[Rfam]
RNA sequence: ACUGCUAAGCCAUCUCUCCAGCCCUAAAAUAUUUUUAAAAAGAAAAUGUGCUGGGCUGGAGAGAUGGCUUAGUGGU
Numbered sequence: 001a002c003u004g005c006u007a008a009g010c011c012a013u014c015u016c017u018c019c020a021g022c023c024c025u026a027a028a029a030u031a032u033u034u035u036u037a038a039a040a041a042g043a044a045a046a047u048g049u050g051c052u053g054g055g056c057u058g059g060a061g062a063g064a065u066g067g068c069u070u071a072g073u074g075g076u
Stems, first nucleotide, its partner, number of pairs: 002075023
Background
This 76-nucleotide RNA sequence from Jaculus jaculus belongs to the Rfam family "mir-3473 microRNA precursor family". Pairs were carried over by alignment from the consensus structure, which was predicted with RNAalifold. The source organism's lineage runs through Eukaryota, Sarcopterygii, Euarchontoglires, Dipodoidea and Jaculus. Its family is annotated with cellular response to mechanical stimulus, miRNA-mediated post-transcriptional gene silencing and RISC complex in the Gene Ontology.